The record is a 371-nucleotide RNA sequence from Enterococcus sulfureus, which matches "Bacterial RNase P class B" in Rfam. Ribonuclease P (RNase P) is a ubiquitous endoribonuclease, found in archaea, bacteria and eukarya as well as chloroplasts and mitochondria. Its best characterised activity is the generation of mature 5'-ends of tRNAs by cleaving the 5'-leader elements of precursor-tRNAs. Cellular RNase Ps are ribonucleoproteins. RNA from bacterial RNase Ps retains its catalytic activity in the absence of the protein subunit, i.e. it is a ribozyme. It scores 317 bits against the family's covariance model. The family's RNA type in Rfam is ribozyme. NCBI's taxonomy places the organism under Bacteria, Bacillati, Lactobacillales, Enterococcaceae, Enterococcus sulfureus.

[Rfam]
RNA sequence: AUUUUUAGAUAAUCGCGGUCUACUAGAUGUAGGCUGAGGAAAGUCCAUGCUCGCACAAGCUGCGAUGCUUGUAGUGUUCGUGUCUGGCGAAACCAUAAGCCAGAGUACAGCAAUGUAACGGCAGGAAAAAAAGCUAAGGCAUUUGCUAUGCUUGAGUACCCUUGAAAGUGCCACAGUGACGAAGCGAUCGGAGAAAUCUUAUCGGUGGAACGCGGUAAACCCCUCGAGCGAGCAACCCAAACAAUGGUCGGGGCGCUUUUUGGAACGGAAAGAUAAAGAACGGAACCAAAGAGGCAAGAAAUUGCAGAUAGAUGAUUAUCCAAGUUGAGUUGCUCCCUGUAACUUGACUGGACAAAACAUGGCUUAUAGAA
Numbered sequence: 001a002u003u004u005u006u007a008g009a010u011a012a013u014c015g016c017g018g019u020c021u022a023c024u025a026g027a028u029g030u031a032g033g034c035u036g037a038g039g040a041a042a043g044u045c046c047a048u049g050c051u052c053g054c055a056c057a058a059g060c061u062g063c064g065a066u067g068c069u070u071g072u073a074g075u076g077u078u079c080g081u082g083u084c085u086g087g088c089g090a091a092a093c094c095a096u097a098a099g100c101c102a103g104a105g106u107a108c109a110g111c112a113a114u115g116u117a118a119c120g121g122c123a124g125g126a127a128a129a130a131a132a133g134c135u136a137a138g139g140c141a142u143u144u145g146c147u148a149u150g151c152u153u154g155a156g157u158a159c160c161c162u163u164g165a166a167a168g169u170g171c172c173a174c175a176g177u178g179a180c181g182a183a184g185c186g187a188u189c190g191g192a193g194a195a196a197u198c199u200u201a202u203c204g205g206u207g208g209a210a211c212g213c214g215g216u217a218a219a220c221c222c223c224u225c226g227a228g229c230g231a232g233c234a235a236c237c238c239a240a241a242c243a244a245u246g247g248u249c250g251g252g253g254c255g256c257u258u259u260u261u262g263g264a265a266c267g268g269a270a271a272g273a274u275a276a277a278g279a280a281c282g283g284a285a286c287c288a289a290a291g292a293g294g295c296a297a298g299a300a301a302u303u304g305c306a307g308a309u310a311g312a313u314g315a316u317u318a319u320c321c322a323a324g325u326u327g328a329g330u331u332g333c334u335c336c337c338u339g340u341a342a343c344u345u346g347a348c349u350g351g352a353c354a355a356a357a358c359a360u361g362g363c364u365u366a367u368a369g370a371a
Base pairs, nucleotide, nucleotide: 004371005370006369007367008320009319010318011317012316013315014314016036017035018034019033020032021031041365042364043363045362046361047360048359049358050232051231052230053229054228055072056071057070058069059068060067078227079226080225082223083104084103085102086101087100088099105119106117107116108115109114120222121221123162124161125160131153132152133151134150138147139146140145168220169219170216171215172214185204186203187202188201190199191198192197236252237251238250256293257292258291259290260289261288262287294305295304296303297302323349324348325347326346327345328344329343330342331341332340333339